RNA sequence: AUGUUAUCAUGAAAGGCAGAGGGACUAGACCCAUUGAAGCCUUGGCAACCCUUUUUCGACCAAAAGAAGAUGAGAAGGUGCUAAAUUCUACUGAUUGGUUACUCAAUCGGAAAGAUAACCC
Numbered sequence: 001a002u003g004u005u006a007u008c009a010u011g012a013a014a015g016g017c018a019g020a021g022g023g024a025c026u027a028g029a030c031c032c033a034u035u036g037a038a039g040c041c042u043u044g045g046c047a048a049c050c051c052u053u054u055u056u057c058g059a060c061c062a063a064a065a066g067a068a069g070a071u072g073a074g075a076a077g078g079u080g081c082u083a084a085a086u087u088c089u090a091c092u093g094a095u096u097g098g099u100u101a102c103u104c105a106a107u108c109g110g111a112a113a114g115a116u117a118a119c120c121c
Stems, first nucleotide, its partner, number of pairs: 003119006013043005021032003026090004044082004049078002051074003086113001091110006
Rfam assigns this 121-nucleotide RNA from Flavobacteriaceae bacterium MAR_2010_188 to the family "SAM riboswitch aptamer (S box leader)".
About the family: The SAM riboswitch is found upstream of a number of genes which code for proteins involved in methionine or cysteine biosynthesis in Gram-positive bacteria.